[Rfam]
RNA sequence: UGGGUUAGCCCUAAGUCAAACCUAUUCAAUUUUGCCCAAGUUUAUAGAAAAACGUAUCAACAUCUAAAAUAUCAAAUUAGUUGCAUUUAAUCCAUUGUGGAUUUAAUGAAACUAAUUUGAUGUUGUAAAUGUUGCUAUGUUUUUCUAUAAACAUGAUCAAACUUGAAUGGGUUCGACUUAGGACAAACCUAA
Numbered sequence: 001u002g003g004g005u006u007a008g009c010c011c012u013a014a015g016u017c018a019a020a021c022c023u024a025u026u027c028a029a030u031u032u033u034g035c036c037c038a039a040g041u042u043u044a045u046a047g048a049a050a051a052a053c054g055u056a057u058c059a060a061c062a063u064c065u066a067a068a069a070u071a072u073c074a075a076a077u078u079a080g081u082u083g084c085a086u087u088u089a090a091u092c093c094a095u096u097g098u099g100g101a102u103u104u105a106a107u108g109a110a111a112c113u114a115a116u117u118u119g120a121u122g123u124u125g126u127a128a129a130u131g132u133u134g135c136u137a138u139g140u141u142u143u144u145c146u147a148u149a150a151a152c153a154u155g156a157u158c159a160a161a162c163u164u165g166a167a168u169g170g171g172u173u174c175g176a177c178u179u180a181g182g183a184c185a186a187a188c189c190u191a192a
Base pairs, nucleotide, nucleotide: 005187006186008184011181012180013179014178015177016176017175019173020172021171022170023169024168025167026166031161032160033159034158045147046146047145048144049143050142051141052140055137056136059133060132061131062130063129065127066126068124072120073119074118075117076116077115
RNA: MIR1435 microRNA precursor family